Notes: A member of the RNA family "Small Cajal body specific RNA 4" from Rhinolophus ferrumequinum, 128 nucleotides long. Its family is annotated with nucleolus, Cajal body and RNA processing in the Gene Ontology. Pairs were carried over by alignment from the consensus structure, which was predicted with RNAfold. A reference for the family is Darzacq et al. (2002), "Cajal body-specific small nuclear RNAs: a novel class of 2'-O-methylation and pseudouridylation guide RNAs", EMBO J.
[Rfam]
RNA sequence: CCUGGAGGACUAAGAAGGCUGAGUCUGAUGAAGUAAGACUCUGCCGAUACCAUCCUCCUAGAAAAACGGGUUGCAGAGAGCAGCCCUCCCUGGAGAGCUCAGAGGGCUGACUGUACCACCCAACAUUC
Numbered sequence: 001c002c003u004g005g006a007g008g009a010c011u012a013a014g015a016a017g018g019c020u021g022a023g024u025c026u027g028a029u030g031a032a033g034u035a036a037g038a039c040u041c042u043g044c045c046g047a048u049a050c051c052a053u054c055c056u057c058c059u060a061g062a063a064a065a066a067c068g069g070g071u072u073g074c075a076g077a078g079a080g081c082a083g084c085c086c087u088c089c090c091u092g093g094a095g096a097g098c099u100c101a102g103a104g105g106g107c108u109g110a111c112u113g114u115a116c117c118a119c120c121c122a123a124c125a126u127u128c
Base pairs, nucleotide, nucleotide: 002061003060004058005057006056007055008054009053017045018044019043021041022040023039024038025037026036068121069120070119071118079112080111081109082108083107084106085105086104087103091101092100093099
It is annotated as a small Cajal body RNA. Rfam's curators write: scaRNAs are a specific class of small nuclear RNAs which localise to the Cajal bodies and guide the modification of RNA polymerase II transcribed spliceosomal RNAs U1, U2, U4, U5 and U12.